[Rfam]
RNA sequence: CCGUCAUCACCAUUUACCUGAAUAAUCUUUCGGGCAUUUGGCGUGUUCGGAAGAAACUUCCGAGCGGUGCAAAAUGAGAGUAGAUCUAAAAACCAAUUUCCACCCCUUCGGAAGAUGAUUUCGAAGGGGUUCUUUU
Numbered sequence: 001c002c003g004u005c006a007u008c009a010c011c012a013u014u015u016a017c018c019u020g021a022a023u024a025a026u027c028u029u030u031c032g033g034g035c036a037u038u039u040g041g042c043g044u045g046u047u048c049g050g051a052a053g054a055a056a057c058u059u060c061c062g063a064g065c066g067g068u069g070c071a072a073a074a075u076g077a078g079a080g081u082a083g084a085u086c087u088a089a090a091a092a093c094c095a096a097u098u099u100c101c102a103c104c105c106c107u108u109c110g111g112a113a114g115a116u117g118a119u120u121u122c123g124a125a126g127g128g129g130u131u132c133u134u135u136u
Stems, first nucleotide, its partner, number of pairs: 008045003011040002017034005046064008102130010113119001

Notes
This 136-nucleotide RNA from Glaesserella parasuis belongs to the Rfam family "Histidine operon leader". The source organism's lineage runs through Bacteria, Pseudomonadati, Pseudomonadota, Pasteurellaceae and Glaesserella parasuis. At least 6 amino acid operons are known to be regulated by attenuation. In each a leader sequence of 150-200 bp is found upstream of the first gene in the operon. This leader sequence can assume two different secondary structures known as the terminator and the anti-terminator structure. Its family is annotated with histidine biosynthetic process in the Gene Ontology.